[Rfam]
RNA sequence: AGCACCUUUAAUUCAGUCCCGUGAGGCUGGCAAGGUAACGUGAAUCGAGGUUCGCGAUGUAGGAGGAGGAAUCCGCAUGACCAUGCGGGGUCUCUUUACGCACGCGCACUCUCCAUCCUGUGAUAAACAUCACUCCUUGCCGAUUACGGCAAGGAGUUUUUUGAU
Number, nucleotide and partner (000 for none) at each position: 001a000002g000003c000004a036005c035006c034007u033008u032009u000010a000011a000012u000013u030014c029015a028016g027017u026018c025019c000020c000021g000022u000023g000024a000025g018026g017027c016028u015029g014030g013031c000032a008033a007034g006035g005036u004037a000038a000039c000040g000041u000042g000043a000044a000045u000046c000047g000048a000049g000050g000051u000052u000053c000054g000055c000056g000057a000058u000059g000060u000061a000062g000063g000064a000065g096066g095067a000068g093069g092070a091071a000072u089073c088074c087075g086076c085077a084078u083079g000080a000081c000082c000083a078084u077085g076086c075087g074088g073089g072090g000091u070092c069093u068094c000095u066096u065097u000098a000099c000100g000101c000102a000103c000104g000105c000106g000107c000108a000109c000110u000111c000112u000113c000114c000115a000116u000117c000118c000119u000120g000121u000122g000123a000124u000125a000126a000127a000128c000129a160130u000131c000132a157133c156134u155135c154136c153137u152138u151139g150140c149141c148142g147143a000144u000145u000146a000147c142148g141149g140150c139151a138152a137153g136154g135155a134156g133157u132158u000159u000160u129161u000162u000163g000164a000165u000
The record is a 165-nucleotide sequence from Paenibacillus spiritus, which matches "PyrR binding site" in Rfam.
This family represents the PyrR binding site and terminator structure. This RNA structure is found upstream of a variety of genes involved in pyrimidine biosynthesis and transport. The alignment also includes a portion of the antiterminator structure.